[Rfam]
RNA: Guanidine-II riboswitch aptamer (mini-ykkC)
Organism: Fodinibius roseus
RNA sequence: AAGUAGGGACGACCUUACCUCUCUUUUUUUCAAUGGGGACGGCCUCA
Numbered sequence: 001a002a003g004u005a006g007g008g009a010c011g012a013c014c015u016u017a018c019c020u021c022u023c024u025u026u027u028u029u030u031c032a033a034u035g036g037g038g039a040c041g042g043c044c045u046c047a
Base pairs, nucleotide, nucleotide: 001020003018004017005016006015007014008013034047035046036045037044038043